[Rfam]
RNA sequence: GAAGACCCUGUUGAGCUUGACUCUAGUCUGGCAUUGUGAGGCGGUAUAAGAGGUGCAGUAUAGGUGGGAGCUAAGCAAUUAGCGCCAAUGAGAUACCACCACUCUUACUGCUGCUUCACUUAUUCGAUUGUGUGAAACAAGUAUAUUAUAUUGUGUCGUAGCUCUCACGGGUUAUUGUCACUUAUAAUAUGCACGUAUUCUUGUUCAACGUAUGGAUAGUCGUUGUAAUAAUCAUAUAAACCCAUGGUGUCAUGUUCUGUUUUGCUGUGUGUUCGCGCACACGGCGAGACGUGAAUGUUGAUGCUUCUGGACUAAAACGAUUAAUUAUGACAUUUAAGGCUUCUAUACACUUCACGUCGAAGACAUUGCCAGGUGGGGAGUUUGACUGGGGCGGUACAUCUCCAAAACAAUAACGGAGGUGUCCAAAGGUCAGCUCAGUGUGGACAGAAACCACACGUUGAGUAUAAGGACAAAAGCUGGCUUGAUCUUGAUAUUCAGUACGUAUCGGGACGGCUAAUGCCUGGCCUUACGAUCCUUUUGGCUUUAAAGAGUUUUUAACAAGAGGUGUCAGAAAAGUUACCACAGGGAUAACUG
Numbered sequence: 001g002a003a004g005a006c007c008c009u010g011u012u013g014a015g016c017u018u019g020a021c022u023c024u025a026g027u028c029u030g031g032c033a034u035u036g037u038g039a040g041g042c043g044g045u046a047u048a049a050g051a052g053g054u055g056c057a058g059u060a061u062a063g064g065u066g067g068g069a070g071c072u073a074a075g076c077a078a079u080u081a082g083c084g085c086c087a088a089u090g091a092g093a094u095a096c097c098a099c100c101a102c103u104c105u106u107a108c109u110g111c112u113g114c115u116u117c118a119c120u121u122a123u124u125c126g127a128u129u130g131u132g133u134g135a136a137a138c139a140a141g142u143a144u145a146u147u148a149u150a151u152u153g154u155g156u157c158g159u160a161g162c163u164c165u166c167a168c169g170g171g172u173u174a175u176u177g178u179c180a181c182u183u184a185u186a187a188u189a190u191g192c193a194c195g196u197a198u199u200c201u202u203g204u205u206c207a208a209c210g211u212a213u214g215g216a217u218a219g220u221c222g223u224u225g226u227a228a229u230a231a232u233c234a235u236a237u238a239a240a241c242c243c244a245u246g247g248u249g250u251c252a253u254g255u256u257c258u259g260u261u262u263u264g265c266u267g268u269g270u271g272u273u274c275g276c277g278c279a280c281a282c283g284g285c286g287a288g289a290c291g292u293g294a295a296u297g298u299u300g301a302u303g304c305u306u307c308u309g310g311a312c313u314a315a316a317a318c319g320a321u322u323a324a325u326u327a328u329g330a331c332a333u334u335u336a337a338g339g340c341u342u343c344u345a346u347a348c349a350c351u352u353c354a355c356g357u358c359g360a361a362g363a364c365a366u367u368g369c370c371a372g373g374u375g376g377g378g379a380g381u382u383u384g385a386c387u388g389g390g391g392c393g394g395u396a397c398a399u400c401u402c403c404a405a406a407a408c409a410a411u412a413a414c415g416g417a418g419g420u421g422u423c424c425a426a427a428g429g430u431c432a433g434c435u436c437a438g439u440g441u442g443g444a445c446a447g448a449a450a451c452c453a454c455a456c457g458u459u460g461a462g463u464a465u466a467a468g469g470a471c472a473a474a475a476g477c478u479g480g481c482u483u484g485a486u487c488u489u490g491a492u493a494u495u496c497a498g499u500a501c502g503u504a505u506c507g508g509g510a511c512g513g514c515u516a517a518u519g520c521c522u523g524g525c526c527u528u529a530c531g532a533u534c535c536u537u538u539u540g541g542c543u544u545u546a547a548a549g550a551g552u553u554u555u556u557a558a559c560a561a562g563a564g565g566u567g568u569c570a571g572a573a574a575a576g577u578u579a580c581c582a583c584a585g586g587g588a589u590a591a592c593u594g
Stems, first nucleotide, its partner, number of pairs: 007586004012582002014578005020381004027373007036119010047107006063100005070083004123361005133354004141194002144191002210348007384397001385395003398420006423524002429481006435461002438456006462471002486510009512521003535564006544558004
Shown here is a 594-nucleotide part of an RNA from Chironomus tentans, a member of the family "Eukaryotic large subunit ribosomal RNA". Taxonomically the source falls in Camptochironomus (Eukaryota, Opisthokonta, Aparaglossata, Chironomini).